[Rfam]
The family of this 352-nucleotide RNA sequence from Triticum urartu is "MIR5048 microRNA precursor family". Its family is annotated with RISC complex and miRNA-mediated post-transcriptional gene silencing in the Gene Ontology. Rfam 15.1 lists 8 matches to the family in 6 species. Lineage of the source: Eukaryota > Magnoliopsida > Mesangiospermae > Triticinae > Triticum.
Nucleotides: 352
Base pairs, nucleotide, nucleotide: 002351003350004349005348007346008345009344010343011342012341013340014339015338016337017336018335020333021332022331023330025329026328027327028326029325030324031323032322033321034320039315040314041313042312044311045310046309048308049307050306051305052301055300056299058297059296060295062293063292064291066289067288068287069286070285071284073283074282075281076280077279078278079277081276082275083274085272086271087270088269089268090267091266092265094263095262096261097260098259099258100257103255105254106253116252117251119249120248121247122246123245
Number, partner (000 for none) and nucleotide at each position: 001000u002351c003350u004349a005348g006000c007346a008345a009344u010343a011342u012341a013340u014339u015338u016337g017336c018335a019000g020333g021332u022331u023330u024000u025329a026328g027327g028326u029325c030324u031323a032322a033321g034320u035000g036000a037000a038000g039315g040314a041313u042312a043000u044311c045310g046309a047000u048308c049307u050306c051305u052301g053000u054000u055300a056299a057000u058297a059296u060295a061000u062293u063292g064291u065000a066289a067288a068287c069286c070285u071284u072000c073283a074282c075281a076280a077279a078278u079277u080000c081276c082275c083274u084000u085272g086271a087270u088269u089268a090267u091266u092265u093000c094263a095262u096261a097260g098259c099258g100257c101000g102000c103255u104000a105254u106253u107000u108000u109000a110000a111000a112000a113000g114000a115000a116252a117251u118000g119249a120248u121247u122246u123245g124000g125000c126000a127000u128000u129000g130000g131000a132000c133000a134000a135000a136000c137000c138000a139000a140000g141000u142000u143000g144000u145000c146000c147000a148000a149000c150000a151000u152000g153000c154000a155000u156000a157000u158000u159000c160000a161000u162000g163000a164000c165000u166000u167000g168000a169000a170000a171000a172000a173000g174000u175000a176000a177000a178000a179000a180000a181000a182000a183000u184000a185000c186000a187000g188000u189000c190000u191000g192000g193000a194000u195000a196000u197000u198000g199000u200000g201000u202000u203000u204000g205000a206000c207000u208000u209000a210000g211000a212000a213000a214000g215000a216000u217000g218000g219000a220000a221000a222000a223000g224000c225000u226000a227000a228000a229000c230000a231000a232000a233000a234000a235000g236000u237000u238000g239000u240000g241000a242000a243000g244000g245123c246122a247121g248120a249119u250000g251117a252116u253106a254105a255103a256000a257100g258099u259098g260097c261096u262095a263094u264000u265092g266091a267090a268089u269088g270087a271086u272085c273000a274083a275082g276081g277079a278078a279077u280076u281075u282074g283073u284071g285070a286069g287068g288067u289066u290000u291064a292063c293062a294000u295060u296059a297058u298000c299056u300055u301052c302000g303000c304000a305051a306050g307049a308048g309046u310045u311044g312042u313041a314040u315039u316000g317000u318000u319000c320034a321033c322032u323031u324030a325029g326028a327027c328026c329025u330023a331022g332021a333020c334000a335018u336017g337016c338015a339014a340013g341012u342011a343010u344009a345008u346007u347000u348005c349004u350003a351002g352000g